[Rfam]
Background:
This 91-nucleotide RNA sequence from Peptoclostridium litorale belongs to the Rfam family "c-di-GMP-I riboswitch aptamer". NCBI's taxonomy places the organism under Bacteria, Bacillota, Peptostreptococcales, Peptoclostridiaceae, Peptoclostridium litorale. A search with the family's covariance model found it, with a score of 76 bits.

RNA sequence: UUUAUGAAAAGGCAAACUUGUCGAAAGAUGAGGACGCAAAGCUAAGGGUCUAAAGUAAAUUCAACUAUUCUAUGAUCGCCUGGCUGCCAUA
Numbered sequence: 001u002u003u004a005u006g007a008a009a010a011g012g013c014a015a016a017c018u019u020g021u022c023g024a025a026a027g028a029u030g031a032g033g034a035c036g037c038a039a040a041g042c043u044a045a046g047g048g049u050c051u052a053a054a055g056u057a058a059a060u061u062c063a064a065c066u067a068u069u070c071u072a073u074g075a076u077c078g079c080c081u082g083g084c085u086g087c088c089a090u091a
Base pairs, nucleotide, nucleotide: 012037013036017032018031019030020029021028022027040085041084042083043082045081046080047079048076049075050074055070057068
Rfam describes the family as follows. GEMM was predicted in a large-scale screen for bacterial structured RNA regulatory elements.